[Rfam]
RNA sequence: AUAAUCCUAGGCGAUGGAGUUCGCCAUAAACGCGCUGCUUAUCUUAUGACUCCUACCAGUAU
Numbered sequence: 001a002u003a004a005u006c007c008u009a010g011g012c013g014a015u016g017g018a019g020u021u022c023g024c025c026a027u028a029a030a031c032g033c034g035c036u037g038c039u040u041a042u043c044u045u046a047u048g049a050c051u052c053c054u055a056c057c058a059g060u061a062u
Base pairs, nucleotide, nucleotide: 010025011024012023013022016053017052018051019050020049021048032043
Shown here is a 62-nucleotide sequence from Bacillus cereus, a member of the family "Fluoride riboswitch aptamer (crcB RNA motif)". NCBI's taxonomy places the organism under Bacteria, Bacillati, Caryophanales, Bacillus, Bacillus cereus. Pairs were carried over by alignment from the consensus structure, which is taken from published work. The sequence is in the family's curated seed alignment. On this family, see Baker et al., Science 2012: "Widespread genetic switches and toxicity resistance proteins for fluoride".